Background: A member of the RNA family "mir-5890 microRNA precursor family" from Haemonchus placei, 78 nucleotides long. The base pairs follow the family's consensus structure, which was predicted with RNAalifold.
RNA sequence: UUUACGUGGCAGCAUAGGACUGAAUUGUGGGAGGACUUAUAUGAUUCUACCCCUUUUCAUUUUCAUGCUGUUUUGGUA
Numbered sequence: 001u002u003u004a005c006g007u008g009g010c011a012g013c014a015u016a017g018g019a020c021u022g023a024a025u026u027g028u029g030g031g032a033g034g035a036c037u038u039a040u041a042u043g044a045u046u047c048u049a050c051c052c053c054u055u056u057u058c059a060u061u062u063u064c065a066u067g068c069u070g071u072u073u074u075g076g077u078a
Stems, first nucleotide, its partner, number of pairs: 008072008017063003021059004027053001029052003032048004036043001